[Rfam]
RNA sequence: AGUGAAAAGAAGAAACCAUCCGUUUCUCACCUUACUCUAAUUAGGGUUGUAGGGUUAAUAAUUAUGAUAUAUUACUAAUUUGUGUAUAUAUAUUGCGGGUGGAGAAUUCCAUCCGCAUUAUUUGUUAUAU
Numbered sequence: 001a002g003u004g005a006a007a008a009g010a011a012g013a014a015a016c017c018a019u020c021c022g023u024u025u026c027u028c029a030c031c032u033u034a035c036u037c038u039a040a041u042u043a044g045g046g047u048u049g050u051a052g053g054g055u056u057a058a059u060a061a062u063u064a065u066g067a068u069a070u071a072u073u074a075c076u077a078a079u080u081u082g083u084g085u086a087u088a089u090a091u092a093u094u095g096c097g098g099g100u101g102g103a104g105a106a107u108u109c110c111a112u113c114c115g116c117a118u119u120a121u122u123u124g125u126u127a128u129a130u
Stems, first nucleotide, its partner, number of pairs: 011027006029055003034050002037046002094117010

This 130-nucleotide RNA sequence from Clostridium cylindrosporum belongs to the Rfam family "Ribosomal protein L20 leader". About the family: This family is a putative r-protein leader autoregulatory structure found in B. subtilis and other low-GC Gram-positive bacteria. It is located in the 5' untranslated regions of mRNAs encoding initiation factor 3 followed by ribosomal proteins L35 and L20 (infC-rpmI-rplT). A Rho-independent transcription terminator structure that is probably involved in regulation is included at the 3' end. The family's RNA type in Rfam is cis-regulatory leader. It scores 72 bits against the family's covariance model.